[Rfam]
RNA: Small Cajal body specific RNA 4
RNA sequence: AGUGGAGGACUAAAACUAAAGAAACUGAGUCUGAAGAGUGAGACUCAGGUGACAGUGGCCUCCUAAAAGUAAAGGGAUGGAGAGAGCAGCCCAGCUUACAGCAAAGCAAAGGGCUGACUGUGCCAUCUGACAUGU
Numbered sequence: 001a002g003u004g005g006a007g008g009a010c011u012a013a014a015a016c017u018a019a020a021g022a023a024a025c026u027g028a029g030u031c032u033g034a035a036g037a038g039u040g041a042g043a044c045u046c047a048g049g050u051g052a053c054a055g056u057g058g059c060c061u062c063c064u065a066a067a068a069g070u071a072a073a074g075g076g077a078u079g080g081a082g083a084g085a086g087c088a089g090c091c092c093a094g095c096u097u098a099c100a101g102c103a104a105a106g107c108a109a110a111g112g113g114c115u116g117a118c119u120g121u122g123c124c125a126u127c128u129g130a131c132a133u134g135u
Base pairs, nucleotide, nucleotide: 003065004063005062006061007060008059023050025048027046028045029044030043031042032041074128075127076126085119086118087116088115089114090113091112092111097108099106